The record is a 274-nucleotide RNA sequence from Miscanthus lutarioriparius, which matches "MIR821 microRNA precursor family" in Rfam. Rfam links the family to the GO terms RISC complex and miRNA-mediated post-transcriptional gene silencing. On this family, see Luo et al., FEBS Lett 2006: "Rice embryogenic calli express a unique set of microRNAs, suggesting regulatory roles of microRNAs in plant post-embryogenic development". The organism belongs to Miscanthus, within Eukaryota.

RNA sequence: GAUUUCAUCUGAAAAAGUCAGCAACAACAAAGUUGUAGAACUGAUCAAGAUCUACAACUUUUAUUUUAGUCAUUUCUUCAUCCGAGAAUGUGAUAGUAACAUUGUUCAUAAAUUUUACAUAUCUCUCGUAUGGUUUCAUAAACUAUAAGAGAGAUAUGUAGAUUUUGUGAACAAUGUUACUACCACUUUCUUGGAUGAAGAAAUGACUAAAUAAAAGUUGUAGAUCUUGAUCAGUUCUACAACUUUGUUGCUCAUGACUUAUUCAACUGAAAUC
Numbered sequence: 001g002a003u004u005u006c007a008u009c010u011g012a013a014a015a016a017g018u019c020a021g022c023a024a025c026a027a028c029a030a031a032g033u034u035g036u037a038g039a040a041c042u043g044a045u046c047a048a049g050a051u052c053u054a055c056a057a058c059u060u061u062u063a064u065u066u067u068a069g070u071c072a073u074u075u076c077u078u079c080a081u082c083c084g085a086g087a088a089u090g091u092g093a094u095a096g097u098a099a100c101a102u103u104g105u106u107c108a109u110a111a112a113u114u115u116u117a118c119a120u121a122u123c124u125c126u127c128g129u130a131u132g133g134u135u136u137c138a139u140a141a142a143c144u145a146u147a148a149g150a151g152a153g154a155u156a157u158g159u160a161g162a163u164u165u166u167g168u169g170a171a172c173a174a175u176g177u178u179a180c181u182a183c184c185a186c187u188u189u190c191u192u193g194g195a196u197g198a199a200g201a202a203a204u205g206a207c208u209a210a211a212u213a214a215a216a217g218u219u220g221u222a223g224a225u226c227u228u229g230a231u232c233a234g235u236u237c238u239a240c241a242a243c244u245u246u247g248u249u250g251c252u253c254a255u256g257a258c259u260u261a262u263u264c265a266a267c268u269g270a271a272a273u274c
Stems, first nucleotide, its partner, number of pairs: 015260006023252001026249002030245013044231010055220011067209001069207007077199005083193006090186003094182006101175012114162002117159006131145006